Rfam assigns this 112-nucleotide sequence from Jeotgalibacillus soli to the family "epsC RNA".
By type it is a cis-regulatory element.
The base pairs follow the family's consensus structure, which is taken from published work.

RNA sequence: UGGUGAAGCCUACUUGCCUUUAUCUAAGUAGGCACUCGGUCAUGCUGUGGGUUGAAAGAUACCUUAGACGCAAGUCGUCGAAAGUGUGGUGUGAGGAUGGGUUGGAUGCCCA
Numbered sequence: 001u002g003g004u005g006a007a008g009c010c011u012a013c014u015u016g017c018c019u020u021u022a023u024c025u026a027a028g029u030a031g032g033c034a035c036u037c038g039g040u041c042a043u044g045c046u047g048u049g050g051g052u053u054g055a056a057a058g059a060u061a062c063c064u065u066a067g068a069c070g071c072a073a074g075u076c077g078u079c080g081a082a083a084g085u086g087u088g089g090u091g092u093g094a095g096g097a098u099g100g101g102u103u104g105g106a107u108g109c110c111c112a
Stems, first nucleotide, its partner, number of pairs: 002018003008033006035095004039090008049064004067079004098112005